[Rfam]
RNA: U1 spliceosomal RNA
RNA sequence: AUAUUUACCUGGCAGGGGAGAUACCAUGAUCAUGAAGGUGGUUUUCCCAGGGCGGGAUAUACCCAAUGCACUCUGGGUGUGCUGACACCUGUGAUUUCCCCAAAUGUGGGAAACUCGACGGCAUAAUUUGUGGUAGUGGGGGACUGCGUUCCCACUCUCCCCCG
Numbered sequence: 001a002u003a004u005u006u007a008c009c010u011g012g013c014a015g016g017g018g019a020g021a022u023a024c025c026a027u028g029a030u031c032a033u034g035a036a037g038g039u040g041g042u043u044u045u046c047c048c049a050g051g052g053c054g055g056g057a058u059a060u061a062c063c064c065a066a067u068g069c070a071c072u073c074u075g076g077g078u079g080u081g082c083u084g085a086c087a088c089c090u091g092u093g094a095u096u097u098c099c100c101c102a103a104a105u106g107u108g109g110g111a112a113a114c115u116c117g118a119c120g121g122c123a124u125a126a127u128u129u130g131u132g133g134u135a136g137u138g139g140g141g142g143a144c145u146g147c148g149u150u151c152c153c154a155c156u157c158u159c160c161c162c163c164g
Base pairs, nucleotide, nucleotide: 012122013121015119016048017047018046019045020044021043023042024041025040026039027038049090050089051088054086056083058081060079061078062077063076064075092117093116094115095113096112097111099109100108138163139162140161141160142159143158146155148153